[Rfam]
Annotation:
The record is a 75-nucleotide sequence from Alligator sinensis, which matches "Mammalian CPEB3 ribozyme" in Rfam. A search with the family's covariance model found it, with a score of 41 bits. Rfam links the family to the GO term RNA nuclease activity.

RNA sequence: GUUGCAAAUUUGAGGCCAUAGCAGAAGCACUUCUGGGAUGGCCUGUCAGAUUCCCAUGAAUCUGAGAAUCCUGCU
Numbered sequence: 001g002u003u004g005c006a007a008a009u010u011u012g013a014g015g016c017c018a019u020a021g022c023a024g025a026a027g028c029a030c031u032u033c034u035g036g037g038a039u040g041g042c043c044u045g046u047c048a049g050a051u052u053c054c055c056a057u058g059a060a061u062c063u064g065a066g067a068a069u070c071c072u073g074c075u
Base pairs, nucleotide, nucleotide: 014043015042016041017040020075021074022073023072024071026069027039047064048063049062050061051060052059053058
Pairs were carried over by alignment from the consensus structure, which is taken from published work.